[Rfam]
Overview: A member of the RNA family "mir-2 microRNA precursor family" from Diabrotica balteata, 65 nucleotides long. The match comes from Rfam's covariance-model search (50 bits). Taxonomically the source falls in Diabrotica (Eukaryota, Bilateria, Arthropoda, Luperini). The literature on the family includes a 2001 paper in Science by Lee and Ambros, "An extensive class of small RNAs in Caenorhabditis elegans".
RNA sequence: CCGCUCAUCAAGUGGUUGUGAAACGGAUAUCUGGCUCGUAUCACAGCCAGCUUUGAUGAGCGAUG
Numbered sequence: 001c002c003g004c005u006c007a008u009c010a011a012g013u014g015g016u017u018g019u020g021a022a023a024c025g026g027a028u029a030u031c032u033g034g035c036u037c038g039u040a041u042c043a044c045a046g047c048c049a050g051c052u053u054u055g056a057u058g059a060g061c062g063a064u065g
Stems, first nucleotide, its partner, number of pairs: 005059006011052002013049009025039001